[Rfam]
RNA: Lysine riboswitch aptamer
Organism: Bacillus taeanensis
RNA sequence: UAAUGGGGUAGAGGCGCAAAACGAAUCAGUAAGAUAGUGGAGAUAUUGGAGGCAAAGAAACUAUCUGAAAGGUCAAUUUGCCGAAGUAAAUGUUAGAGCUCCAAAUCUGCAUUUGCUGGGUCGCUGCUAAACAAGCAGCGAACUGUCACUAUAAGAAAUUAUAGUGGAGAACUAUUCCGAGU
Numbered sequence: 001u002a003a004u005g006g007g008g009u010a011g012a013g014g015c016g017c018a019a020a021a022c023g024a025a026u027c028a029g030u031a032a033g034a035u036a037g038u039g040g041a042g043a044u045a046u047u048g049g050a051g052g053c054a055a056a057g058a059a060a061c062u063a064u065c066u067g068a069a070a071g072g073u074c075a076a077u078u079u080g081c082c083g084a085a086g087u088a089a090a091u092g093u094u095a096g097a098g099c100u101c102c103a104a105a106u107c108u109g110c111a112u113u114u115g116c117u118g119g120g121u122c123g124c125u126g127c128u129a130a131a132c133a134a135g136c137a138g139c140g141a142a143c144u145g146u147c148a149c150u151a152u153a154a155g156a157a158a159u160u161a162u163a164g165u166g167g168a169g170a171a172c173u174a175u176u177c178c179g180a181g182u
Stems, first nucleotide, its partner, number of pairs: 006177006016081005023074002032066007085117009095108003118144002121141008146167007